[Rfam]
Shown here is a 150-nucleotide RNA sequence from Carlito syrichta, a member of the family "U12 minor spliceosomal RNA". Pairs were carried over by alignment from the consensus structure. It scores 98 bits against the family's covariance model. Its Rfam clan is "U2 clan". By type it is a spliceosomal small nuclear RNA.

RNA sequence: AGGCCUUAAACUUAUGAGUAGGGAAAAUAACGAUUCAGGGUGAUGCCCAAAUCUUCACUGCUAAUGUGAGACGAACUAUUGAGCAAGUAAAAGUUCCCCCUAAGGUGAUCCACCUACUCUGCAGAAUGCCUGGGAACCGUGAUCUGCCUG
Numbered sequence: 001a002g003g004c005c006u007u008a009a010a011c012u013u014a015u016g017a018g019u020a021g022g023g024a025a026a027a028u029a030a031c032g033a034u035u036c037a038g039g040g041u042g043a044u045g046c047c048c049a050a051a052u053c054u055u056c057a058c059u060g061c062u063a064a065u066g067u068g069a070g071a072c073g074a075a076c077u078a079u080u081g082a083g084c085a086a087g088u089a090a091a092a093g094u095u096c097c098c099c100c101u102a103a104g105g106u107g108a109u110c111c112a113c114c115u116a117c118u119c120u121g122c123a124g125a126a127u128g129c130c131u132g133g134g135a136a137c138c139g140u141g142a143u144c145u146g147c148c149u150g
Base pairs, nucleotide, nucleotide: 004023005022006021007020008019032053033052034051035050038047039046054070055069056068057067058066084150085149087147088146091145093143094142095141097139100134101133103131104130105129106128107127109125110124113121